[Rfam]
RNA: SAH (S-adenosyl-L-homocysteine) riboswitch aptamer
RNA sequence: GAGGUCGAGAGGCGCUGCAACGGGCUCGGGCCCGCCACGCUCGGCCGAGUCACCGUGAACAAGGGCGCCUCCCACAA
Numbered sequence: 001g002a003g004g005u006c007g008a009g010a011g012g013c014g015c016u017g018c019a020a021c022g023g024g025c026u027c028g029g030g031c032c033c034g035c036c037a038c039g040c041u042c043g044g045c046c047g048a049g050u051c052a053c054c055g056u057g058a059a060c061a062a063g064g065g066c067g068c069c070u071c072c073c074a075c076a077a
Stems, first nucleotide, its partner, number of pairs: 003046006021034005